Source information
A member of the RNA family "SAM riboswitch aptamer (S box leader)" from Winogradskyella sp. PC-19, 125 nucleotides long. From the family's description: The SAM riboswitch is found upstream of a number of genes which code for proteins involved in methionine or cysteine biosynthesis in Gram-positive bacteria. It scores 79 bits against the family's covariance model.
[Rfam]
Nucleotides: 125
Base pairs, nucleotide, nucleotide: 003123004122005121006120007119008118013043014042015041016040017039021032022031023030026081027080028079029078044073045072046071047070049069050068051065052064053063054062077117082114083113085111086110
Number, partner (000 for none) and nucleotide at each position: 001000a002000u003123g004122u005121u006120a007119u008118c009000a010000a011000g012000a013043a014042a015041g016040g017039c018000a019000g020000a021032g022031g023030g024000a025000a026081u027080a028079g029078a030023c031022c032021c033000g034000a035000u036000g037000a038000a039017g040016c041015c042014u043013u044073a045072g046071c047070a048000a049069c050068c051065c052064u053063u054062a055000g056000a057000c058000u059000u060000a061000c062054u063053a064052a065051g066000a067000a068050g069049g070047u071046g072045c073044u074000a075000a076000a077117u078029u079028c080027u081026a082114c083113u084000u085111g086110a087000u088000u089000a090000g091000c092000g093000a094000a095000u096000c097000a098000u099000u100000u101000c102000u103000c104000g105000c106000u107000u108000a109000u110086u111085c112000u113083a114082g115000a116000u117077a118008g119007a120006u121005a122004a123003c124000c125000a
Record summary:
Lineage of the source: Bacteria > Bacteroidota > Flavobacteriales > Flavobacteriaceae > Winogradskyella.